[Rfam]
RNA sequence: GCCGGGAUGGCGGAAUAGGUAGACGCGCCGGACUUAAAAUCCUGUGGGCCGUAAGGCCCGUGCGGGUUCGAUUCCCGCUCCUGGUA
Numbered sequence: 001g002c003c004g005g006g007a008u009g010g011c012g013g014a015a016u017a018g019g020u021a022g023a024c025g026c027g028c029c030g031g032a033c034u035u036a037a038a039a040u041c042c043u044g045u046g047g048g049c050c051g052u053a054a055g056g057c058c059c060g061u062g063c064g065g066g067u068u069c070g071a072u073u074c075c076c077g078c079u080c081c082u083g084g085u086a
Stems, first nucleotide, its partner, number of pairs: 001085007010026003028044001030042003062078005
Overview: tRNA: an 86-nucleotide RNA from Rudanella paleaurantiibacter. Pairs were carried over by alignment from the consensus structure, which is taken from published work.